Shown here is a 512-nucleotide RNA sequence from Kitasatospora sp. MMS16-BH015, a member of the family "Saccharopolyspora sRNA 350". Rfam links the family to the GO term regulation of secondary metabolite biosynthetic process. By type it is an antisense RNA. Pairs were carried over by alignment from the consensus structure, which was predicted with RNAfold.
[Rfam]
RNA sequence: UUGACCGAGUAGUCCCACAGGGCGUCGGGCUGCUCCAGGGCCUCGUCGCCCAUGUGGUCGCCGUCGGCGAGCACGCCGAGCACGGUGGAGACGCCGUACUUGCCGGUGCCGAUCCGGUUGACCUUGCCGUGCGCGAUCAGCACCACGUCGGAGACCGGCUGGCCCGCCUCGGCCAGCACCUCGCCGGCGGCGAACUCGCGCUGGGUGAAGCGGCCGGCCAGCUCGGCGAGCAGCGCGUCGUCCUCGAACCCGCGCAGCACCGGCAGCUCGCGCAGCGAGGGCGGGACGAUCCGCACCUCCUGGCCCGUCUUGACGAAGCUCACCCGGCCGCGGCCGACGGCGUAGCUGAGCCGCCGGUUGACCCGGUAGGUGCCGCCCGAGACCUGCACCCACGGCAGCUGCUUGAGCAGCCAACGCGAGCUGAUGCCUUGCAUCUGCGGCUCGGACUUGGUCGUGGUGGCCAGAUUCCGCGCGCCCGCGGUGCCGAGGCUCGUCUGCUGGCGGCCCUCCGG
Numbered sequence: 001u002u003g004a005c006c007g008a009g010u011a012g013u014c015c016c017a018c019a020g021g022g023c024g025u026c027g028g029g030c031u032g033c034u035c036c037a038g039g040g041c042c043u044c045g046u047c048g049c050c051c052a053u054g055u056g057g058u059c060g061c062c063g064u065c066g067g068c069g070a071g072c073a074c075g076c077c078g079a080g081c082a083c084g085g086u087g088g089a090g091a092c093g094c095c096g097u098a099c100u101u102g103c104c105g106g107u108g109c110c111g112a113u114c115c116g117g118u119u120g121a122c123c124u125u126g127c128c129g130u131g132c133g134c135g136a137u138c139a140g141c142a143c144c145a146c147g148u149c150g151g152a153g154a155c156c157g158g159c160u161g162g163c164c165c166g167c168c169u170c171g172g173c174c175a176g177c178a179c180c181u182c183g184c185c186g187g188c189g190g191c192g193a194a195c196u197c198g199c200g201c202u203g204g205g206u207g208a209a210g211c212g213g214c215c216g217g218c219c220a221g222c223u224c225g226g227c228g229a230g231c232a233g234c235g236c237g238u239c240g241u242c243c244u245c246g247a248a249c250c251c252g253c254g255c256a257g258c259a260c261c262g263g264c265a266g267c268u269c270g271c272g273c274a275g276c277g278a279g280g281g282c283g284g285g286a287c288g289a290u291c292c293g294c295a296c297c298u299c300c301u302g303g304c305c306c307g308u309c310u311u312g313a314c315g316a317a318g319c320u321c322a323c324c325c326g327g328c329c330g331c332g333g334c335c336g337a338c339g340g341c342g343u344a345g346c347u348g349a350g351c352c353g354c355c356g357g358u359u360g361a362c363c364c365g366g367u368a369g370g371u372g373c374c375g376c377c378c379g380a381g382a383c384c385u386g387c388a389c390c391c392a393c394g395g396c397a398g399c400u401g402c403u404u405g406a407g408c409a410g411c412c413a414a415c416g417c418g419a420g421c422u423g424a425u426g427c428c429u430u431g432c433a434u435c436u437g438c439g440g441c442u443c444g445g446a447c448u449u450g451g452u453c454g455u456g457g458u459g460g461c462c463a464g465a466u467u468c469c470g471c472g473c474g475c476c477c478g479c480g481g482u483g484c485c486g487a488g489g490c491u492c493g494u495c496u497g498c499u500g501g502c503g504g505c506c507c508u509c510c511g512g
Stems, first nucleotide, its partner, number of pairs: 007389001009387004015381001021325002025322001027321004036312006045305001048304003052298001054234002058229006065111004075103001077102004082097005117222004122217002127212001130209001131206002134203002140197001149192002155187005160178002166173002235296001237294001240290003244286002249283001251281001253279001257276002261270002329342003351379001353377001355375003361371003391431002394428004399423001401421001403418001407415001437476001440473001443470004448464005477511002480506003485501001487496002